[Rfam]
RNA sequence: UUGCGGGACACCCCUCCCCAACGAGGGGCGCUUAUCUGGAAGGAUACCAGCA
Numbered sequence: 001u002u003g004c005g006g007g008a009c010a011c012c013c014c015u016c017c018c019c020a021a022c023g024a025g026g027g028g029c030g031c032u033u034a035u036c037u038g039g040a041a042g043g044a045u046a047c048c049a050g051c052a
Stems, first nucleotide, its partner, number of pairs: 011028006033046005
RNA: serC leader
Organism: Nioella halotolerans